[Rfam]
RNA sequence: CAAGCAGCAACAAGAAAGUGCUUAGGCUUAAAUGCGUUUACCUAAGCGCUGAUACAAUGCUGCCAGAACAAUUUUAAAGCCAAGAACAGUUUAGUUUAGAGUAGUUUAUAAACUGAUCUACACGUGGCCUAACAUAU
Numbered sequence: 001c002a003a004g005c006a007g008c009a010a011c012a013a014g015a016a017a018g019u020g021c022u023u024a025g026g027c028u029u030a031a032a033u034g035c036g037u038u039u040a041c042c043u044a045a046g047c048g049c050u051g052a053u054a055c056a057a058u059g060c061u062g063c064c065a066g067a068a069c070a071a072u073u074u075u076a077a078a079g080c081c082a083a084g085a086a087c088a089g090u091u092u093a094g095u096u097u098a099g100a101g102u103a104g105u106u107u108a109u110a111a112a113c114u115g116a117u118c119u120a121c122a123c124g125u126g127g128c129c130u131a132a133c134a135u136a137u
Stems, first nucleotide, its partner, number of pairs: 004063006017050010029040004079128004088119002091116008
RNA: Drosophila small cajal body-specific RNA PsiU2-38.40.4
Organism: Drosophila melanogaster